Record summary
The record is a 94-nucleotide RNA sequence from Rhodoferax sp. OV413, which matches "SAH (S-adenosyl-L-homocysteine) riboswitch aptamer" in Rfam. NCBI's taxonomy places the organism under Bacteria, Pseudomonadati, Pseudomonadota, Burkholderiales, Rhodoferax.
[Rfam]
RNA sequence: CCCUCCGAGGAGCGCUGCAACCCCUGGCCUGGCACACAGGUACGGGUGUGAGGCUCGGAAACCGUCCAUCAAGUGAUAACCGCGCUCACCCACU
Numbered sequence: 001c002c003c004u005c006c007g008a009g010g011a012g013c014g015c016u017g018c019a020a021c022c023c024c025u026g027g028c029c030u031g032g033c034a035c036a037c038a039g040g041u042a043c044g045g046g047u048g049u050g051a052g053g054c055u056c057g058g059a060a061a062c063c064g065u066c067c068a069u070c071a072a073g074u075g076a077u078a079a080c081c082g083c084g085c086u087c088a089c090c091c092a093c094u
Stems, first nucleotide, its partner, number of pairs: 004059005021048001023046004
Dot-bracket structure: ...(((((............(.((((................)))).)......)))))...................................
Its family is annotated with regulation of gene expression and S-adenosylhomocysteine metabolic process in the Gene Ontology. The family's consensus secondary structure is taken from published work.